A member of the RNA family "Y RNA" from Microcebus murinus, 95 nucleotides long.
RNA sequence: GGCUGGUCAGAUGGUAAUGAGUUACCAGAACUUACUAACUUCAGUGUUGCUGAAGUUGGUAUACAACCCUCUAGUGCUACAUUUGACUGGCUUAA
Dot-bracket structure: ((((((((.((..(((.((.(...........(((.((.................)).)))........).)).)...))..))))))))))...
Description: The family's RNA type in Rfam is non-coding RNA gene. The base pairs follow the family's consensus structure, which is taken from published work.